The record is a 100-nucleotide RNA, which matches "TPP riboswitch aptamer (THI element)" in Rfam. Rfam's curators write: Vitamin B(1) in its active form thiamin pyrophosphate (TPP) is an essential coenzyme that is synthesised by coupling of pyrimidine and thiazole moieties in bacteria. The match comes from Rfam's covariance-model search (57 bits).
RNA sequence: CUUUGCGCAAACGGGUGCCCUUUCAUAUGGCUGAGAUUAUACCGUCAUUAUUAACCCGAUCAUGGUAAUACAUGCGAGGGGAUUUGCGUCAAAAAUAAAC
Numbered sequence: 001c002u003u004u005g006c007g008c009a010a011a012c013g014g015g016u017g018c019c020c021u022u023u024c025a026u027a028u029g030g031c032u033g034a035g036a037u038u039a040u041a042c043c044g045u046c047a048u049u050a051u052u053a054a055c056c057c058g059a060u061c062a063u064g065g066u067a068a069u070a071c072a073u074g075c076g077a078g079g080g081g082a083u084u085u086g087c088g089u090c091a092a093a094a095a096u097a098a099a100c
Stems, first nucleotide, its partner, number of pairs: 006088005011045004016039001017031003021027001055080003061074004